The family of this 297-nucleotide RNA sequence from Paragonimus skrjabini miyazakii is "Metazoan signal recognition particle RNA". A search with the family's covariance model found it, with a score of 226 bits. Lineage of the source: Eukaryota > Metazoa > Neodermata > Trematoda > Paragonimus.

RNA sequence: GCCGGGCGUGGUGGCGCGCGCCUGUAAUCCGGCUACUUGGAGGCUUGGUGGCGGAAUUUCACGCGGUCGGGGGUUCUGGUGCUGGCUUGUUCAUGUUGAUCGGGUGUCCACGCUAAGCACGGCGCCGAUAUGGAGAGUUUGUCGGAAGGCGAGCUGUCCAGGUCGUGUAAAGAGGGGCGAACCGGCCCAGGGGGGAAACCCAGCAGGCAAAAGUCCCCGCGUGGUGCGGUAGCGGGAUAGCGCCUGUGAAUGGUAGGCCAGUGGCAUCCCGAUCGGCGUGCGAAGACUGUCGCCUUU
Numbered sequence: 001g002c003c004g005g006g007c008g009u010g011g012u013g014g015c016g017c018g019c020g021c022c023u024g025u026a027a028u029c030c031g032g033c034u035a036c037u038u039g040g041a042g043g044c045u046u047g048g049u050g051g052c053g054g055a056a057u058u059u060c061a062c063g064c065g066g067u068c069g070g071g072g073g074u075u076c077u078g079g080u081g082c083u084g085g086c087u088u089g090u091u092c093a094u095g096u097u098g099a100u101c102g103g104g105u106g107u108c109c110a111c112g113c114u115a116a117g118c119a120c121g122g123c124g125c126c127g128a129u130a131u132g133g134a135g136a137g138u139u140u141g142u143c144g145g146a147a148g149g150c151g152a153g154c155u156g157u158c159c160a161g162g163u164c165g166u167g168u169a170a171a172g173a174g175g176g177g178c179g180a181a182c183c184g185g186c187c188c189a190g191g192g193g194g195g196a197a198a199c200c201c202a203g204c205a206g207g208c209a210a211a212a213g214u215c216c217c218c219g220c221g222u223g224g225u226g227c228g229g230u231a232g233c234g235g236g237a238u239a240g241c242g243c244c245u246g247u248g249a250a251u252g253g254u255a256g257g258c259c260a261g262u263g264g265c266a267u268c269c270c271g272a273u274c275g276g277c278g279u280g281c282g283a284a285g286a287c288u289g290u291c292g293c294c295u296u297u
Stems, first nucleotide, its partner, number of pairs: 001044003004023007028041003047294008057285004062280002064275008077266002080263009091253004096248001101246007108236002111234005117227004122222004126165004131160004136155008166172001174217005185208003192201003

The family has 91 seed sequences and 383,523 matches in Rfam 15.1. About the family: The signal recognition particle (SRP) is a universally conserved ribonucleoprotein. It is involved in the co-translational targeting of proteins to membranes. The eukaryotic SRP consists of a 300-nucleotide 7S RNA and six proteins: SRPs 72, 68, 54, 19, 14, and 9. Archaeal SRP consists of a 7S RNA and homologues of the eukaryotic SRP19 and SRP54 proteins.